int-alpA RNA: a 67-nucleotide RNA from Nitrosomonas aestuarii.
About the family: Acidobacteria (1 example), Planctomycetes (1 example), Proteobacteria.
NCBI's taxonomy places the organism under Bacteria, Pseudomonadati, Pseudomonadota, Betaproteobacteria, Nitrosomonas.
[Rfam]
RNA sequence: GCCAUCCCUAGUCCGGCCAGACGAAAAGCGGAAACCUUCACCGUCUGGGGUGGUAUCUCUUGAAGGG
Dot-bracket structure: ((((((((..(((......))).....((((...[[[[..))))..)))))))).........]]]]
Annotation: The family's consensus secondary structure is taken from published work.